[Rfam]
About this RNA: This 119-nucleotide RNA sequence from Enterocloster clostridioformis belongs to the Rfam family "FMN riboswitch aptamer (RFN element)". The organism belongs to Enterocloster clostridioformis, within Bacteria.
RNA sequence: UAGGUUCUUCGGGGCAGGGUGUGAUUCCCUACCGGCGGUAUAGUCCGCGACCCGCUGCAUGCGGCUGAUUUGGUGCGAUUCCAAAACCGACAGUAUAGUCUGGAUGAGAGAAGACAAUU
Numbered sequence: 001u002a003g004g005u006u007c008u009u010c011g012g013g014g015c016a017g018g019g020u021g022u023g024a025u026u027c028c029c030u031a032c033c034g035g036c037g038g039u040a041u042a043g044u045c046c047g048c049g050a051c052c053c054g055c056u057g058c059a060u061g062c063g064g065c066u067g068a069u070u071u072g073g074u075g076c077g078a079u080u081c082c083a084a085a086a087c088c089g090a091c092a093g094u095a096u097a098g099u100c101u102g103g104a105u106g107a108g109a110g111a112a113g114a115c116a117a118u119u
Stems, first nucleotide, its partner, number of pairs: 006114005017029003031099002033089002035048004043087002052064002069085005091102003